[Rfam]
RNA sequence: CUGUUUGAGGGGCGUUGCAACAGAUUUUUCUGCUAGGCUCAAACAGAUGAUUAUCAAUAUAACGGCGCUCAUCUUAU
Numbered sequence: 001c002u003g004u005u006u007g008a009g010g011g012g013c014g015u016u017g018c019a020a021c022a023g024a025u026u027u028u029u030c031u032g033c034u035a036g037g038c039u040c041a042a043a044c045a046g047a048u049g050a051u052u053a054u055c056a057a058u059a060u061a062a063c064g065g066c067g068c069u070c071a072u073c074u075u076a077u
Stems, first nucleotide, its partner, number of pairs: 002045007021032004
The family of this 77-nucleotide sequence from Pelistega ratti is "SAH (S-adenosyl-L-homocysteine) riboswitch aptamer". Pairs were carried over by alignment from the consensus structure, which is taken from published work.